[Rfam]
Shown here is an 81-nucleotide sequence from Cephalotus follicularis, a member of the family "MIR473 microRNA precursor family". Rfam 15.1 lists 189 matches to the family in 90 species. The match comes from Rfam's covariance-model search (66 bits). On this family, see Lu et al., Plant Cell 2005: "Novel and mechanical stress-responsive MicroRNAs in Populus trichocarpa that are absent from Arabidopsis". The family's consensus secondary structure was predicted with WAR.
RNA sequence: CUUAUUCACUCUCCCUCAAGGCUUCUAGCACAAGCUGAUUACAAGCAAAAACUUGAGGCCUUUGGGGAGAGUGGAAAAAAA
Number, nucleotide and partner (000 for none) at each position: 001c000002u000003u000004a000005u000006u074007c073008a072009c071010u070011c069012u068013c067014c066015c065016u000017c064018a062019a061020g060021g059022c058023u057024u056025c055026u000027a000028g000029c000030a000031c000032a000033a000034g000035c000036u000037g000038a000039u000040u000041a000042c000043a000044a000045g000046c000047a000048a000049a000050a000051a000052c000053u000054u000055g025056a024057g023058g022059c021060c020061u019062u018063u000064g017065g015066g014067g013068a012069g011070a010071g009072u008073g007074g006075a000076a000077a000078a000079a000080a000081a000